A member of the RNA family "Bacterial RNase P class B" from Priestia taiwanensis, 394 nucleotides long. For this family Rfam cites "The Ribonuclease P Database" (Brown, Nucleic Acids Res, 1999). About the family: Ribonuclease P (RNase P) is a ubiquitous endoribonuclease, found in archaea, bacteria and eukarya as well as chloroplasts and mitochondria. The match comes from Rfam's covariance-model search (320 bits). By type it is a ribozyme.
[Rfam]
RNA sequence: ACGUUUGGGUAAUCGCUGCAACAGCUUUGUUGUAGAGGAAAGUCCAUGCUCACACGAUCUGUGAUGAUCGUAGUGUUCGUGCCUAGCGAAAAGAUAAGCUAGGGUAGCUUGGUAUCGACUGAGCUAACGGCAGGGAACCGACCUAAGUCCCUCGGGAUAUGGUCCUACUACCUUGAAAGUGCCACAGUGACGUAGUCCCAGAAGAAAUGAUGGGAGUGGAACGCGGUAAACCCCACGAGUGAGAAACCCAAAUAAUGGUAGGGGCACUUUCUCCACGGAAAUGAACGGAGGAGAAGGACAGAUGAAGUGUUCAUUCUGUAGACAGAUGGUUACCACCUGAGUACGAGGUUAAGAACCGCUUGUAGUACGAUGGUACAGAACAUGGCUUACAAAA
Dot-bracket structure: ...(((((((((((.((((((........))))))....[[[.[[[[[(((((((((((......)))))).....(((((((((((..........))))))((((((((((....))))))))).)((.(((.....((((...(((......)))..))))......))).....(((((............(((((..(....)..))))).........)))..))))))))))))))...(((...........)))...(((((((.................)))))))(((((............)))))........))))))).((...((((....................))))...)).......]]]]]]]].).)))